[Rfam]
RNA sequence: GCACAGGCGUGGUUGAGUGGUUACUUCGGAAACAAUUAUUAUUGACCACUGACACUAUCCUGUGUCUUU
Numbered sequence: 001g002c003a004c005a006g007g008c009g010u011g012g013u014u015g016a017g018u019g020g021u022u023a024c025u026u027c028g029g030a031a032a033c034a035a036u037u038a039u040u041a042u043u044g045a046c047c048a049c050u051g052a053c054a055c056u057a058u059c060c061u062g063u064g065u066c067u068u069u
Stems, first nucleotide, its partner, number of pairs: 002064006012053004017049004026045004
About this RNA:
Shown here is a 69-nucleotide sequence from Trichonephila inaurata, a member of the family "Vault RNA". The literature on the family includes a 2009 paper in Mol Biol Evol by Stadler et al., "Evolution of Vault RNAs". Pairs were carried over by alignment from the consensus structure, which is taken from published work. By type it is a non-coding RNA gene. It scores 38 bits against the family's covariance model. Taxonomically the source falls in Trichonephila inaurata (Eukaryota, Panarthropoda, Arachnida, Orbiculariae). Rfam 15.1 lists 2,873 matches to the family in 431 species.